[Rfam]
The family of this 199-nucleotide sequence from Olea europaea is "small nucleolar RNA snoR127".
RNA sequence: CUGGGAUGAUGUAACUUAGCCAAAUCAGACAUUGAUGUGCUCCUUGAGGUGUUUCCUUCAAGGUUUUUCUCACAUUGUCAUUUGGAGGCUGUUUUGUUAUCUCUGCUUACGCGUACUGCCUCGAGCCUUGAAUGGGACCCUUUUGUAGAAGCGCAUCUAUCUGACGAUAAAAACAGAGAUUGGUUCCUAGCUGACCAGG
Numbered sequence: 001c002u003g004g005g006a007u008g009a010u011g012u013a014a015c016u017u018a019g020c021c022a023a024a025u026c027a028g029a030c031a032u033u034g035a036u037g038u039g040c041u042c043c044u045u046g047a048g049g050u051g052u053u054u055c056c057u058u059c060a061a062g063g064u065u066u067u068u069c070u071c072a073c074a075u076u077g078u079c080a081u082u083u084g085g086a087g088g089c090u091g092u093u094u095u096g097u098u099a100u101c102u103c104u105g106c107u108u109a110c111g112c113g114u115a116c117u118g119c120c121u122c123g124a125g126c127c128u129u130g131a132a133u134g135g136g137a138c139c140c141u142u143u144u145g146u147a148g149a150a151g152c153g154c155a156u157c158u159a160u161c162u163g164a165c166g167a168u169a170a171a172a173a174c175a176g177a178g179a180u181u182g183g184u185u186c187c188u189a190g191c192u193g194a195c196c197a198g199g
Stems, first nucleotide, its partner, number of pairs: 001198004
Overview
NCBI's taxonomy places the organism under Eukaryota, Viridiplantae, asterids, Oleeae, Olea europaea. The family's RNA type in Rfam is C/D-box small nucleolar RNA. It scores 40 bits against the family's covariance model.